[Rfam]
RNA sequence: AAUCAUCGAAGGACGCACUCCUCCUCCCAGCGUUCCUUGGAUGGGACCGGCAACACCUCCUCCUCCCAGUUGCUGGUCAGUAUCGGAAACCCGGCGCUCCUCCUCCCGCGCCGGGUUUUCUGC
Numbered sequence: 001a002a003u004c005a006u007c008g009a010a011g012g013a014c015g016c017a018c019u020c021c022u023c024c025u026c027c028c029a030g031c032g033u034u035c036c037u038u039g040g041a042u043g044g045g046a047c048c049g050g051c052a053a054c055a056c057c058u059c060c061u062c063c064u065c066c067c068a069g070u071u072g073c074u075g076g077u078c079a080g081u082a083u084c085g086g087a088a089a090c091c092c093g094g095c096g097c098u099c100c101u102c103c104u105c106c107c108g109c110g111c112c113g114g115g116u117u118u119u120c121u122g123c
Stems, first nucleotide, its partner, number of pairs: 007040001009038001011036002013033004045078010087118011
RNA: Alphaproteobacterial ar14
Organism: Pseudorhizobium banfieldiae